A member of the RNA family "Manganese Mn2+ riboswitch aptamer (yybP-ykoY)" from Priestia veravalensis, 160 nucleotides long. Taxonomically the source falls in Priestia (Bacteria, Bacillati, Bacilli, Caryophanales).
[Rfam]
RNA sequence: AGAUUCCUUAAAGGGGAGUAGCGUCAGGUUUUUCCUGAAAUAAAGUCGACAUUUCGUAGAGAAAUCUACCGGCUUUAUUGGCAUAGUAAAACAAUGUCUAGCAAGACCUUUACCGAUUAGUGGUGAAGGUCUUUUAUUGUUUAAAUGAGAGAUAAAAGAU
Numbered sequence: 001a002g003a004u005u006c007c008u009u010a011a012a013g014g015g016g017a018g019u020a021g022c023g024u025c026a027g028g029u030u031u032u033u034c035c036u037g038a039a040a041u042a043a044a045g046u047c048g049a050c051a052u053u054u055c056g057u058a059g060a061g062a063a064a065u066c067u068a069c070c071g072g073c074u075u076u077a078u079u080g081g082c083a084u085a086g087u088a089a090a091a092c093a094a095u096g097u098c099u100a101g102c103a104a105g106a107c108c109u110u111u112a113c114c115g116a117u118u119a120g121u122g123g124u125g126a127a128g129g130u131c132u133u134u135u136a137u138u139g140u141u142u143a144a145a146u147g148a149g150a151g152a153u154a155a156a157a158g159a160u
Base pairs, nucleotide, nucleotide: 025037026036027035039079040078041077042076043075044074045073046072047071048070056069057068058067059066060065080160082158084156